[Rfam]
RNA: Group II catalytic intron D1-D4-1
RNA sequence: CGUCGGCGUCAGUAAUGGCGGCGAUGAUGCGGCAGGAGUCAGCAGACGGCAUAGUACCGAUGACCUGUCGGGAAGGCC
Numbered sequence: 001c002g003u004c005g006g007c008g009u010c011a012g013u014a015a016u017g018g019c020g021g022c023g024a025u026g027a028u029g030c031g032g033c034a035g036g037a038g039u040c041a042g043c044a045g046a047c048g049g050c051a052u053a054g055u056a057c058c059g060a061u062g063a064c065c066u067g068u069c070g071g072g073a074a075g076g077c078c
Stems, first nucleotide, its partner, number of pairs: 001026002004023002007020005038047003048078003057071006